Overview: The record is a 312-nucleotide RNA sequence from Halocatena salina, which matches "Archaeal RNase P" in Rfam. The match comes from Rfam's covariance-model search (174 bits). Rfam's curators write: Ribonuclease P (RNase P) is a ubiquitous endoribonuclease, found in archaea, bacteria and eukarya as well as chloroplasts and mitochondria. Its best characterised activity is the generation of mature 5'-ends of tRNAs by cleaving the 5'-leader elements of precursor-tRNAs. Cellular RNase Ps are ribonucleoproteins. RNA from bacterial RNase Ps retains its catalytic activity in the absence of the protein subunit, i.e. it is a ribozyme. By type it is a ribozyme. Rfam links the family to the GO terms ribonuclease P activity, tRNA processing and multimeric ribonuclease P complex.
[Rfam]
RNA sequence: GGCAGUGGGUGCCCGGCUUCCGCACGAUGUGAGGAAAGUCCCCCCACCGUCCGGGCAGGUGACCGGGUGCAAACCCGGGACGGGAGACCGUCGGCUCUGGAACAGAAACGAGACCCCUCCACCGGACCGAUGAGGUGUGCGACGCUUGAGGUAACGAGAGCACGUUAACCCACCGAGGACCGAUGGUGGAGAACGGAUGGAACGGCGAACCCUCACCGGUGCAAGCCCGCGACAGAAUGGUAGCCCGGACACACACCGCGGGCGCUCAGCCGAAUGCUGGAUAGAACAGAAGGGGGCUUACGGCUCACAGCC
Numbered sequence: 001g002g003c004a005g006u007g008g009g010u011g012c013c014c015g016g017c018u019u020c021c022g023c024a025c026g027a028u029g030u031g032a033g034g035a036a037a038g039u040c041c042c043c044c045c046a047c048c049g050u051c052c053g054g055g056c057a058g059g060u061g062a063c064c065g066g067g068u069g070c071a072a073a074c075c076c077g078g079g080a081c082g083g084g085a086g087a088c089c090g091u092c093g094g095c096u097c098u099g100g101a102a103c104a105g106a107a108a109c110g111a112g113a114c115c116c117c118u119c120c121a122c123c124g125g126a127c128c129g130a131u132g133a134g135g136u137g138u139g140c141g142a143c144g145c146u147u148g149a150g151g152u153a154a155c156g157a158g159a160g161c162a163c164g165u166u167a168a169c170c171c172a173c174c175g176a177g178g179a180c181c182g183a184u185g186g187u188g189g190a191g192a193a194c195g196g197a198u199g200g201a202a203c204g205g206c207g208a209a210c211c212c213u214c215a216c217c218g219g220u221g222c223a224a225g226c227c228c229g230c231g232a233c234a235g236a237a238u239g240g241u242a243g244c245c246c247g248g249a250c251a252c253a254c255a256c257c258g259c260g261g262g263c264g265c266u267c268a269g270c271c272g273a274a275u276g277c278u279g280g281a282u283a284g285a286a287c288a289g290a291a292g293g294g295g296g297c298u299u300a301c302g303g304c305u306c307a308c309a310g311c312c
Stems, first nucleotide, its partner, number of pairs: 001312003005308005010302002013280005021031004036299003040296005045221004058217005063078005079092005093212002098208001100206001114196002117191008135173002225263007